[Rfam]
RNA sequence: UUGGCAAAUGAAGAUAAAAAAUACAGGGACAUCAGUGCUCCUCUAAGAGAAAAAGAUGACUUAGUCUAACGGGAAUUUCUUUGAUGCUAA
Numbered sequence: 001u002u003g004g005c006a007a008a009u010g011a012a013g014a015u016a017a018a019a020a021a022u023a024c025a026g027g028g029a030c031a032u033c034a035g036u037g038c039u040c041c042u043c044u045a046a047g048a049g050a051a052a053a054a055g056a057u058g059a060c061u062u063a064g065u066c067u068a069a070c071g072g073g074a075a076u077u078u079c080u081u082u083g084a085u086g087c088u089a090a
Stems, first nucleotide, its partner, number of pairs: 002089005
Overview:
The family of this 90-nucleotide RNA sequence from Striga hermonthica is "Small nucleolar RNA R44/J54/Z268 family". Clan: SNORD74 clan. Its family is annotated with RNA processing and nucleolus in the Gene Ontology. The family's consensus secondary structure was predicted with PFOLD.